A member of the RNA family "mir-367 microRNA precursor family" from Myotis lucifugus, 65 nucleotides long. For this family Rfam cites "The expression profile of microRNAs in mouse embryos" (Mineno et al., Nucleic Acids Res, 2006). A search with the family's covariance model found it, with a score of 76 bits. Rfam links the family to the GO terms RISC complex and miRNA-mediated post-transcriptional gene silencing. The family's consensus secondary structure was predicted with RNAalifold.
RNA sequence: CCGUCACUGUUGCUAAUGUGCAACUCUGUACACGACCUGGAAUUGCACUUUAGCAAUGGUGACGG
Dot-bracket structure: ....((((((((((((..(((((.((((.........)))).)))))..))))))))))))....